[Rfam]
RNA sequence: AUACCGUGAUGGUUGCAUAGUUCAGCAGAUAAAUCAUGAAGAGAUUUACCAUCUGUCUGAUGUAUCU
Numbered sequence: 001a002u003a004c005c006g007u008g009a010u011g012g013u014u015g016c017a018u019a020g021u022u023c024a025g026c027a028g029a030u031a032a033a034u035c036a037u038g039a040a041g042a043g044a045u046u047u048a049c050c051a052u053c054u055g056u057c058u059g060a061u062g063u064a065u066c067u
Stems, first nucleotide, its partner, number of pairs: 001065004006037005013028004042054004

This 67-nucleotide RNA sequence from Heterocephalus glaber belongs to the Rfam family "Small nucleolar RNA SNORD77". U77 belongs to the C/D family of snoRNAs. It is predicted to guide 2'O-ribose methylation of large 28S rRNA subunit at position A1521. The C/D snoRNAs U44, U47, U74, U75, U76, U78, U79, U80 and U81 share the same host gene as U77 (non-coding). By type it is a C/D-box small nucleolar RNA. The organism belongs to Heterocephalus, within Eukaryota.